[Rfam]
RNA sequence: AUAGUAAUAACUUUAGCAAUAGAACUGUUUUGUCUCUCUCUGUCAAAGAACAAAUUGUUCUCUGUCAGAGAGUGAAAGAACAGUUCAAUAGCUAAAGCGUCCACUAAC
Numbered sequence: 001a002u003a004g005u006a007a008u009a010a011c012u013u014u015a016g017c018a019a020u021a022g023a024a025c026u027g028u029u030u031u032g033u034c035u036c037u038c039u040c041u042g043u044c045a046a047a048g049a050a051c052a053a054a055u056u057g058u059u060c061u062c063u064g065u066c067a068g069a070g071a072g073u074g075a076a077a078g079a080a081c082a083g084u085u086c087a088a089u090a091g092c093u094a095a096a097g098c099g100u101c102c103a104c105u106a107a108c
Stems, first nucleotide, its partner, number of pairs: 002106004011097007019089002022086007029069004034064001049059004
Dot-bracket structure: .((((.....(((((((.((.(((((((((((.(..............((((...))))....).))))..........))))))).)).))))))).....))))..
RNA: mir-8517 microRNA precursor family